[Rfam]
RNA: TPP riboswitch aptamer (THI element)
Organism: Modestobacter sp. VKM Ac-2676
RNA sequence: GAUGCCAUGUGCGGGAGCUCGGGCGGAACCGGGCUGAGAGGGCGACGGAGCGUCGCCGACCGCUGGAACCUGACCGGGUAAUGCCGGCGUAGGGAGCGACACCUGAUGAGCA
Numbered sequence: 001g002a003u004g005c006c007a008u009g010u011g012c013g014g015g016a017g018c019u020c021g022g023g024c025g026g027a028a029c030c031g032g033g034c035u036g037a038g039a040g041g042g043c044g045a046c047g048g049a050g051c052g053u054c055g056c057c058g059a060c061c062g063c064u065g066g067a068a069c070c071u072g073a074c075c076g077g078g079u080a081a082u083g084c085c086g087g088c089g090u091a092g093g094g095a096g097c098g099a100c101a102c103c104u105g106a107u108g109a110g111c112a
Stems, first nucleotide, its partner, number of pairs: 008098003011063004017034005041057007069093004074087004